This 190-nucleotide sequence from Pseudomonas sp. SSM44 belongs to the Rfam family "Pseudomonas sRNA P27". On this family, see Livny et al., Nucleic Acids Res 2006: "Identification of 17 Pseudomonas aeruginosa sRNAs and prediction of sRNA-encoding genes in 10 diverse pathogens using the bioinformatic tool sRNAPredict2". Lineage of the source: Bacteria > Pseudomonadati > Gammaproteobacteria > Pseudomonadaceae > Pseudomonas.
[Rfam]
RNA sequence: GGGUUUUACUCCUGGAUUUACCAUUGACCACCCUCGCGGGCGGUGUGUUUUGGUGUCAGAUCCAGCCUGCACUGAAUCGGGAGCACCAUCUGCGUAGGCUUACUUGUUUAAGGCUUACGCCGCCUACGGUCUUGGACGGCCCCCGCCAGGCAGGGACCCCAAUAAGUUGGCGUAGCGCUAUCGCACUACG
Numbered sequence: 001g002g003g004u005u006u007u008a009c010u011c012c013u014g015g016a017u018u019u020a021c022c023a024u025u026g027a028c029c030a031c032c033c034u035c036g037c038g039g040g041c042g043g044u045g046u047g048u049u050u051u052g053g054u055g056u057c058a059g060a061u062c063c064a065g066c067c068u069g070c071a072c073u074g075a076a077u078c079g080g081g082a083g084c085a086c087c088a089u090c091u092g093c094g095u096a097g098g099c100u101u102a103c104u105u106g107u108u109u110a111a112g113g114c115u116u117a118c119g120c121c122g123c124c125u126a127c128g129g130u131c132u133u134g135g136a137c138g139g140c141c142c143c144c145g146c147c148a149g150g151c152a153g154g155g156a157c158c159c160c161a162a163u164a165a166g167u168u169g170g171c172g173u174a175g176c177g178c179u180a181u182c183g184c185a186c187u188a189c190g
Base pairs, nucleotide, nucleotide: 002159003158005156006155007154011150012149013148014147022047023046027044028043029042031040032039033038051088052087053086054085055084056083057080059078060077061076063074064073065072092146093145094144097141098140099139100138106137107136108135109134110133111132112131113130114129115128172189173188174187175186177184